[Rfam]
RNA sequence: AAGACUAUACUUUUAGGGAUCAUUUCUAUAGUCUCUGAACUGAGAAAUGUUUUUCUGAACUUGGUCGGUUUCGCCAGCCACGAGGAGGAGACAGAGCGGUUCCUUCUGAGCGUGAAGCGGGCUGUGGGUGUUGCCAUCUGUGCAAGAGCUCACAGCCAUUGAUGAUCGUUCUUCCUCUCCUUUAUGGGGAGGUGGAGGGAGGAACCGCAUUCUGAGUGGU
Number, nucleotide and partner (000 for none) at each position: 001a000002a041003g040004a000005c000006u000007a034008u000009a032010c031011u030012u000013u000014u028015a027016g026017g025018g024019a000020u000021c000022a000023u000024u018025u017026c016027u015028a014029u000030a011031g010032u009033c000034u007035c000036u000037g000038a000039a000040c003041u002042g000043a000044g000045a000046a000047a000048u000049g066050u000051u064052u000053u000054u063055c000056u000057g000058a000059a000060c000061u000062u000063g054064g051065u000066c049067g000068g000069u000070u000071u000072c000073g000074c000075c000076a000077g220078c219079c218080a217081c216082g000083a000084g000085g000086a000087g000088g000089a000090g000091a000092c000093a000094g000095a000096g208097c207098g206099g205100u204101u203102c202103c201104u200105u199106c198107u197108g000109a000110g169111c168112g167113u000114g000115a000116a000117g000118c000119g000120g157121g156122c155123u154124g000125u000126g151127g150128g149129u148130g000131u145132u144133g143134c142135c000136a000137u000138c000139u000140g000141u000142g134143c133144a132145a131146g000147a000148g129149c128150u127151c126152a000153c000154a123155g122156c121157c120158a000159u000160u000161g000162a000163u000164g000165a000166u000167c112168g111169u110170u000171c000172u194173u000174c192175c191176u190177c189178u188179c187180c186181u000182u000183u000184a000185u000186g180187g179188g178189g177190a176191g175192g174193u000194g172195g000196a000197g107198g106199g105200a104201g103202g102203a101204a100205c099206c098207g097208c096209a000210u000211u000212c000213u000214g000215a000216g081217u080218g079219g078220u077
This 220-nucleotide sequence from Callorhinchus milii belongs to the Rfam family "Small nucleolar RNA U3". Small nucleolar RNAs (snoRNAs) are involved in the processing and modification of rRNA in the nucleolus. There are two main classes of snoRNAs: the box C/D class, and the box H/ACA class. U3 snoRNA is a member of the box C/D class. Indeed, the box C/D element is a subset of the six short sequence elements found in all U3 snoRNAs, namely boxes A, A', B, C, C', and D. The U3 snoRNA secondary structure is characterised by a small 5' domain (with boxes A and A'), and a larger 3' domain (with boxes B, C, C', and D), the two domains being linked by a single-stranded hinge. Boxes B and C form the B/C motif, which appears to be exclusive to U3 snoRNAs, and boxes C' and D form the C'/D motif. The latter is functionally similar to the C/D motifs found in other snoRNAs. The 5' domain and the hinge region act as a pre-rRNA-binding domain. The 3' domain has conserved protein-binding sites. Both the box B/C and box C'/D motifs are sufficient for nuclear retention of U3 snoRNA. The box C'/D motif is also necessary for nucleolar localisation, stability and hyper-methylation of U3 snoRNA. Both box B/C and C'/D motifs are involved in specific protein interactions and are necessary for the rRNA processing functions of U3 snoRNA. Rfam's curators put it in the seed alignment. Rfam links the family to the GO terms nucleolus and RNA processing. The family is grouped with related families in Rfam's "U3 clan".